[Rfam]
RNA sequence: GGUUUAAAGGGUCCGCAGGCUGUUGUUUAAGUCAGAGGUGAAAGUUUGCAGCUCAACUGUAAAAUUGCCUUUGAUACUGGAUGACUUGAGUUAUAAUGAAGUGGUUAGAAUAUGUAGUGUAGCGGUGAAAUGCAUAGAUAUUACAUAGAAUACCGAUUGCGAAGGCAGAUCACUAAUUAUAUACUGACGCUGAGGGACGAAAGCGUGGGGAGCGAACAGGAUUAGAUACCCUGGUAGUCCACGCCGUAAACGAUGGUUACUAGCUGUUUGGACUUUGGUCUGAGUGGCUAAGCGAAAGUGAUAAGUAACCCACCUGGGGAGUAUGCUCGCAAGAGUGAAACUCAAAGGAAU
Numbered sequence: 001g002g003u004u005u006a007a008a009g010g011g012u013c014c015g016c017a018g019g020c021u022g023u024u025g026u027u028u029a030a031g032u033c034a035g036a037g038g039u040g041a042a043a044g045u046u047u048g049c050a051g052c053u054c055a056a057c058u059g060u061a062a063a064a065u066u067g068c069c070u071u072u073g074a075u076a077c078u079g080g081a082u083g084a085c086u087u088g089a090g091u092u093a094u095a096a097u098g099a100a101g102u103g104g105u106u107a108g109a110a111u112a113u114g115u116a117g118u119g120u121a122g123c124g125g126u127g128a129a130a131u132g133c134a135u136a137g138a139u140a141u142u143a144c145a146u147a148g149a150a151u152a153c154c155g156a157u158u159g160c161g162a163a164g165g166c167a168g169a170u171c172a173c174u175a176a177u178u179a180u181a182u183a184c185u186g187a188c189g190c191u192g193a194g195g196g197a198c199g200a201a202a203g204c205g206u207g208g209g210g211a212g213c214g215a216a217c218a219g220g221a222u223u224a225g226a227u228a229c230c231c232u233g234g235u236a237g238u239c240c241a242c243g244c245c246g247u248a249a250a251c252g253a254u255g256g257u258u259a260c261u262a263g264c265u266g267u268u269u270g271g272a273c274u275u276u277g278g279u280c281u282g283a284g285u286g287g288c289u290a291a292g293c294g295a296a297a298g299u300g301a302u303a304a305g306u307a308a309c310c311c312a313c314c315u316g317g318g319g320a321g322u323a324u325g326c327u328c329g330c331a332a333g334a335g336u337g338a339a340a341c342u343c344a345a346a347g348g349a350a351u
Stems, first nucleotide, its partner, number of pairs: 001314003009311001011198004016192001018191003022085007030078002032074009045063007089185003092181006100174007107151001111147008122133003159166002203244006212238002217233004255310006263288011292299002316343003325336004
RNA: Bacterial small subunit ribosomal RNA, nucleotides 561 to 911